This 156-nucleotide sequence from Populus euphratica belongs to the Rfam family "MIR2912 microRNA precursor family". The family has 2 seed sequences and 15,051 matches in Rfam 15.1. Its family is annotated with miRNA-mediated post-transcriptional gene silencing and RISC complex in the Gene Ontology. NCBI's taxonomy places the organism under Eukaryota, Gunneridae, Pentapetalae, Salicaceae, Populus. The sequence is in the family's curated seed alignment.
[Rfam]
RNA sequence: UCUAGAACUCGAGAUAUGGGCUGAACACUGAACAAUGUCUGGGUUGCAGGACAGAUUCUGACUUCUCCGUUGUUGCUAAGAUUUAGACUUCCAAAUAGUAGAAUUGAGUCUUUCACUCCUCAUGAAUGUUUUAGACCUAUAUCUUAGCUUUCUAGU
Numbered sequence: 001u002c003u004a005g006a007a008c009u010c011g012a013g014a015u016a017u018g019g020g021c022u023g024a025a026c027a028c029u030g031a032a033c034a035a036u037g038u039c040u041g042g043g044u045u046g047c048a049g050g051a052c053a054g055a056u057u058c059u060g061a062c063u064u065c066u067c068c069g070u071u072g073u074u075g076c077u078a079a080g081a082u083u084u085a086g087a088c089u090u091c092c093a094a095a096u097a098g099u100a101g102a103a104u105u106g107a108g109u110c111u112u113u114c115a116c117u118c119c120u121c122a123u124g125a126a127u128g129u130u131u132u133a134g135a136c137c138u139a140u141a142u143c144u145u146a147g148c149u150u151u152c153u154a155g156u
Stems, first nucleotide, its partner, number of pairs: 002155006008147002011145010021134005027129002035123003041119003045115002048112005054105007062098002069091001072088003